[Rfam]
RNA: mir-9223 microRNA precursor family
Organism: Myotis brandtii
RNA sequence: GGCGGUUCUCGGGUGAUGCACCCCGGCAUCAGGCUCCCUCCUCUCUGGUUCUGGAUGUGUCAACCAAGAACCACU
Numbered sequence: 001g002g003c004g005g006u007u008c009u010c011g012g013g014u015g016a017u018g019c020a021c022c023c024c025g026g027c028a029u030c031a032g033g034c035u036c037c038c039u040c041c042u043c044u045c046u047g048g049u050u051c052u053g054g055a056u057g058u059g060u061c062a063a064c065c066a067a068g069a070a071c072c073a074c075u
Base pairs, nucleotide, nucleotide: 002074005071006070007069008068009067011065012064014062015061016060017059019057020056022054023053025052026051028049029048030047031046032045033044